[Rfam]
RNA: terC RNA
RNA sequence: CUGCGGUACCGGGCCCCUCUGGCAAGCGAGGCUGGCGCGCUUGUGAUGUCGGACCGCCCU
Numbered sequence: 001c002u003g004c005g006g007u008a009c010c011g012g013g014c015c016c017c018u019c020u021g022g023c024a025a026g027c028g029a030g031g032c033u034g035g036c037g038c039g040c041u042u043g044u045g046a047u048g049u050c051g052g053a054c055c056g057c058c059c060u
Stems, first nucleotide, its partner, number of pairs: 006054002009052004022044007